[Rfam]
RNA sequence: GCCGCGCCUACUCCGACGGGAGGAAAACCGGGGAACCCUGCCCGGCUGGCGCGGUGAUCCGUUUCAGGGG
Numbered sequence: 001g002c003c004g005c006g007c008c009u010a011c012u013c014c015g016a017c018g019g020g021a022g023g024a025a026a027a028c029c030g031g032g033g034a035a036c037c038c039u040g041c042c043c044g045g046c047u048g049g050c051g052c053g054g055u056g057a058u059c060c061g062u063u064u065c066a067g068g069g070g
Stems, first nucleotide, its partner, number of pairs: 001055008011022004028045005036069005
RNA: int-alpA RNA
Organism: Laribacter hongkongensis